This 101-nucleotide RNA from Paenibacillus sp. oral taxon 786 belongs to the Rfam family "Purine riboswitch aptamer".
RNA sequence: ACAAAACCGCAUAGUUCUUUUCGUAUAAUUCCGGGAAUUGGCCCGGAAGUCUCUACGAGGUCACCGUAAAUGAUCUGGCUACGAAAGGAAGAAACGAACGU
Numbered sequence: 001a002c003a004a005a006a007c008c009g010c011a012u013a014g015u016u017c018u019u020u021u022c023g024u025a026u027a028a029u030u031c032c033g034g035g036a037a038u039u040g041g042c043c044c045g046g047a048a049g050u051c052u053c054u055a056c057g058a059g060g061u062c063a064c065c066g067u068a069a070a071u072g073a074u075c076u077g078g079c080u081a082c083g084a085a086a087g088g089a090a091g092a093a094a095c096g097a098a099c100g101u
Stems, first nucleotide, its partner, number of pairs: 018087008029048007058076006